[Rfam]
RNA: Actino-pnp RNA
RNA sequence: UUCGGUCCUCGGUAGUGGCCUCCGCACUAGGUGCGUGGGCCUCGAUCGAAGACCGCC
Numbered sequence: 001u002u003c004g005g006u007c008c009u010c011g012g013u014a015g016u017g018g019c020c021u022c023c024g025c026a027c028u029a030g031g032u033g034c035g036u037g038g039g040c041c042u043c044g045a046u047c048g049a050a051g052a053c054c055g056c057c
Stems, first nucleotide, its partner, number of pairs: 003055005009049005017041005023035005